Notes
Shown here is a 107-nucleotide RNA sequence from Protea cynaroides, a member of the family "Plant small nucleolar RNA R71". Lineage of the source: Eukaryota > Streptophytina > Mesangiospermae > Proteaceae > Protea. A reference for the family is Brown et al. (2003), "Plant snoRNAs: functional evolution and new modes of gene expression", Trends Plant Sci. By type it is a C/D-box small nucleolar RNA.
RNA sequence: AUUUGAUGGUAUGGGCAGCUUACACAAAGUUUUUUGAAGCGUUCCCAAUACUCAUAUAAUGUUUCUUCAUGGUGUUGUCGAAUUCUACAUAUCUCUUUUCUUAUAUU
Numbered sequence: 001a002u003u004u005g006a007u008g009g010u011a012u013g014g015g016c017a018g019c020u021u022a023c024a025c026a027a028a029g030u031u032u033u034u035u036g037a038a039g040c041g042u043u044c045c046c047a048a049u050a051c052u053c054a055u056a057u058a059a060u061g062u063u064u065c066u067u068c069a070u071g072g073u074g075u076u077g078u079c080g081a082a083u084u085c086u087a088c089a090u091a092u093c094u095c096u097u098u099u100c101u102u103a104u105a106u107u
Stems, first nucleotide, its partner, number of pairs: 001107001003105001005102002057074002060071001